[Rfam]
RNA sequence: CGUUUCCUUCGGGGCAGGGUGAAAUUCCCUACCGGCGGUGAUGUUUCGGCUGGUUUGUUAUCGGCCGAGCUCAGUCCGUGACCCGUGCAGCCAGCUUCUGGUUGCCGGUGGACUCGGUGUAACUCCGAGACCGACAGUAUAGUCUGGAUGGGAGAAGGGAAAG
Number, nucleotide and partner (000 for none) at each position: 001c000002g000003u161004u160005u159006c158007c157008u156009u155010c154011g000012g000013g000014g000015c000016a000017g029018g028019g027020u000021g000022a000023a000024a000025u000026u000027c019028c018029c017030u000031a143032c142033c133034g132035g079036c078037g077038g076039u000040g000041a000042u000043g000044u000045u000046u000047c000048g000049g000050c000051u000052g000053g000054u000055u000056u000057g000058u000059u000060a000061u000062c000063g000064g000065c000066c000067g000068a000069g000070c000071u000072c000073a000074g131075u130076c038077c037078g036079u035080g000081a000082c000083c108084c107085g000086u000087g000088c000089a000090g000091c000092c000093a000094g000095c000096u000097u000098c000099u000100g000101g000102u000103u000104g000105c000106c000107g084108g083109u000110g000111g000112a000113c129114u128115c127116g126117g125118u000119g000120u000121a000122a000123c000124u000125c117126c116127g115128a114129g113130a075131c074132c034133g033134a000135c146136a145137g144138u000139a000140u000141a000142g032143u031144c137145u136146g135147g000148a000149u000150g000151g000152g000153a000154g010155a009156a008157g007158g006159g005160a004161a003162a000163g000
FMN riboswitch aptamer (RFN element): a 163-nucleotide RNA sequence from Paenibacillus tyrphae. A search with the family's covariance model found it, with a score of 109 bits.